[Rfam]
RNA: Small nucleolar RNA SNORD60
RNA sequence: AGCCAGUGAAGACUUCUUACUAUUUAUUUUCUGACACCUACUAUGAGAGCUGCACUGCAGCUUUUGAUUACAAACUUUUGUCUGAGGCUU
Numbered sequence: 001a002g003c004c005a006g007u008g009a010a011g012a013c014u015u016c017u018u019a020c021u022a023u024u025u026a027u028u029u030u031c032u033g034a035c036a037c038c039u040a041c042u043a044u045g046a047g048a049g050c051u052g053c054a055c056u057g058c059a060g061c062u063u064u065u066g067a068u069u070a071c072a073a074a075c076u077u078u079u080g081u082c083u084g085a086g087g088c089u090u
Stems, first nucleotide, its partner, number of pairs: 001089004049061005